[Rfam]
RNA sequence: UAUUAGGUUGGUGCAAAAGUAAUUGCAGUUUUCGCCAUUAAAAGUAAUGGCGAAAACUGCAAUUAUUUUUUCAUCAACCUAAUA
Numbered sequence: 001u002a003u004u005a006g007g008u009u010g011g012u013g014c015a016a017a018a019g020u021a022a023u024u025g026c027a028g029u030u031u032u033c034g035c036c037a038u039u040a041a042a043a044g045u046a047a048u049g050g051c052g053a054a055a056a057c058u059g060c061a062a063u064u065a066u067u068u069u070u071u072c073a074u075c076a077a078c079c080u081a082a083u084a
Stems, first nucleotide, its partner, number of pairs: 001084013015070026
RNA: mir-548 microRNA precursor family